[Rfam]
RNA sequence: CCAUGGGGGUGGCUGGGGCCAACCUCAUGGAGGUGGCUGG
Dot-bracket structure: ((((((..................))))))..........
Source information:
The family of this 40-nucleotide RNA sequence from Rangifer tarandus is "Prion pseudoknot". It is one of the family's seed sequences. This family represents a predicted pseudoknot structure found in prion protein mRNA. It has been suggested that the family has a possible effect in prion protein translation. On this family, see Barrette et al., Nucleic Acids Res 2001: "Pseudoknots in prion protein mRNAs confirmed by comparative sequence analysis and pattern searching".